[Rfam]
RNA: Small nucleolar RNA U61
Organism: Cucurbita maxima
RNA sequence: AAGCUGUGAGGAAGAUUUCUGUGCCAUAGCCGUCCUCUUACGAGGGGUCGUCGGUGAUAGCUACACAAUCCUCUAAGAAGUUCUGAGCUU
Number, nucleotide and partner (000 for none) at each position: 001a090002a089003g088004c087005u000006g000007u000008g000009a000010g000011g000012a000013a000014g000015a000016u000017u000018u000019c000020u000021g000022u000023g000024c000025c000026a000027u000028a000029g000030c000031c000032g000033u000034c000035c000036u000037c000038u000039u000040a000041c000042g000043a000044g000045g000046g000047g000048u000049c000050g000051u000052c000053g000054g000055u000056g000057a000058u000059a000060g000061c000062u000063a000064c000065a000066c000067a000068a000069u000070c000071c000072u000073c000074u000075a000076a000077g000078a000079a000080g000081u000082u000083c000084u000085g000086a000087g004088c003089u002090u001